[Rfam]
RNA sequence: GAUAAGGCAGGUGAGAAUCCUGCCCGCCGAAAGCCUAAGGUUUCCUGGGGAAGGUAAUUCCGCCCAGGGUUAGCCGGUACCUAAGUCGAGGCCGAAAGGCGUAGACGAUGGAUAGCAGGUCAACAUUCCUGCGCUACUAAUGUGGACCGAUGGAGGGACGGCGUUUGAAUGGUGAGGGGACGACUAGAAAUGUCCCUCGACGGGUGAGGCCUAGAGCAUAGUUAAAUGCGUGCUCGUUCCGGCCGAUCCCGGACAACCUCAUUUAUGUUGGGUAUGUCAUCUGAAGAACGUCCAAGAAAAGCUUCUAAGGGUUGAAGCAUUGGUAACCGUACUAAAACUGACACAGGUAGGCGAGACGAGUAGUCUAAGGCGCU
Numbered sequence: 001g002a003u004a005a006g007g008c009a010g011g012u013g014a015g016a017a018u019c020c021u022g023c024c025c026g027c028c029g030a031a032a033g034c035c036u037a038a039g040g041u042u043u044c045c046u047g048g049g050g051a052a053g054g055u056a057a058u059u060c061c062g063c064c065c066a067g068g069g070u071u072a073g074c075c076g077g078u079a080c081c082u083a084a085g086u087c088g089a090g091g092c093c094g095a096a097a098g099g100c101g102u103a104g105a106c107g108a109u110g111g112a113u114a115g116c117a118g119g120u121c122a123a124c125a126u127u128c129c130u131g132c133g134c135u136a137c138u139a140a141u142g143u144g145g146a147c148c149g150a151u152g153g154a155g156g157g158a159c160g161g162c163g164u165u166u167g168a169a170u171g172g173u174g175a176g177g178g179g180a181c182g183a184c185u186a187g188a189a190a191u192g193u194c195c196c197u198c199g200a201c202g203g204g205u206g207a208g209g210c211c212u213a214g215a216g217c218a219u220a221g222u223u224a225a226a227u228g229c230g231u232g233c234u235c236g237u238u239c240c241g242g243c244c245g246a247u248c249c250c251g252g253a254c255a256a257c258c259u260c261a262u263u264u265a266u267g268u269u270g271g272g273u274a275u276g277u278c279a280u281c282u283g284a285a286g287a288a289c290g291u292c293c294a295a296g297a298a299a300a301g302c303u304u305c306u307a308a309g310g311g312u313u314g315a316a317g318c319a320u321u322g323g324u325a326a327c328c329g330u331a332c333u334a335a336a337a338c339u340g341a342c343a344c345a346g347g348u349a350g351g352c353g354a355g356a357c358g359a360g361u362a363g364u365c366u367a368a369g370g371c372g373c374u
Base pairs, nucleotide, nucleotide: 006024007023008022009021010020011019025372026371027370028369033352034351035350036349039333040332044068045067046066047065048064049063053061054060075329076328077327078326080111081110085106086105087104089102091100092099093098115132116131117130118129119128135325136324137323138322139321140320141319142318143317147310148309152305153304154303155302160292161291162290163289166285171281172280173279174278175277176197177196178195179194180193181192199254202250203249204248209243210242211241214235215234216233217232218231219230221229222228257272258271259270261268262267338347339346354366355365356364357363